[Rfam]
RNA sequence: GGAUGUGAGGGCGAUCUGGCUGCGACAUCUGUCACCCCAUUGAUCGCUAGGGUUGAUUCGGCUGAUCUGGCUGGCUAGGCGGGUGUCCCCUUCCUCCCUCACCGCUCCAUGUGCGUCCCUCCCGAAGCUCCGCGCUCGGUGGAAGAGGACGAGUUACCCCGGCGGAAGAGAAUCGUUCUUCGGUUCAGAGGUAUACGAGUAGCUGCGCUCCCCUGCUAGAACCUCCAAACAAGCUCCAAGGCCCAUUUGUAGGAGACACGUAGGGAAGUCAAGCUCCGAGACUUCAAACACAUCCAAAUGAGGCACUGCACGUGGCAGCCUGCCCUCCUUU
Numbered sequence: 001g002g003a004u005g006u007g008a009g010g011g012c013g014a015u016c017u018g019g020c021u022g023c024g025a026c027a028u029c030u031g032u033c034a035c036c037c038c039a040u041u042g043a044u045c046g047c048u049a050g051g052g053u054u055g056a057u058u059c060g061g062c063u064g065a066u067c068u069g070g071c072u073g074g075c076u077a078g079g080c081g082g083g084u085g086u087c088c089c090c091u092u093c094c095u096c097c098c099u100c101a102c103c104g105c106u107c108c109a110u111g112u113g114c115g116u117c118c119c120u121c122c123c124g125a126a127g128c129u130c131c132g133c134g135c136u137c138g139g140u141g142g143a144a145g146a147g148g149a150c151g152a153g154u155u156a157c158c159c160c161g162g163c164g165g166a167a168g169a170g171a172a173u174c175g176u177u178c179u180u181c182g183g184u185u186c187a188g189a190g191g192u193a194u195a196c197g198a199g200u201a202g203c204u205g206c207g208c209u210c211c212c213c214u215g216c217u218a219g220a221a222c223c224u225c226c227a228a229a230c231a232a233g234c235u236c237c238a239a240g241g242c243c244c245a246u247u248u249g250u251a252g253g254a255g256a257c258a259c260g261u262a263g264g265g266a267a268g269u270c271a272a273g274c275u276c277c278g279a280g281a282c283u284u285c286a287a288a289c290a291c292a293u294c295c296a297a298a299u300g301a302g303g304c305a306c307u308g309c310a311c312g313u314g315g316c317a318g319c320c321u322g323c324c325c326u327c328c329u330u331u
Base pairs, nucleotide, nucleotide: 001108002107003106005102006101007100008099009098010097011096013093014092018090019089024087025086026085027084028083029082030081031080032079033078035074036073037070038069039068042067043066044065045064046062047061048060116171117170118168120166121165122139123138124137125136127135128134140162142160147158148157202274203273204272208268209267211265212264213263214262215261216260223255224254225253226252229250230249231248232247233246296331297330298329300326302324303323304322306318307317308316309315

7SK RNA: a 331-nucleotide RNA from Scleropages formosus. The base pairs follow the family's consensus structure, which is taken from published work. Rfam classes the family as a non-coding RNA gene. Rfam describes the family as follows. 7SK was discovered as an abundant small nuclear RNA in the mid-70s but a possible function has only recently been suggested. Two independent studies have found that 7SK RNA binds the CDK9/cyclin T complex (known as elongation factor P-TEFb). A reference for the family is Wassarman and Steitz (1991), "Structural analyses of the 7SK ribonucleoprotein (RNP), the most abundant human small RNP of unknown function", Mol Cell Biol.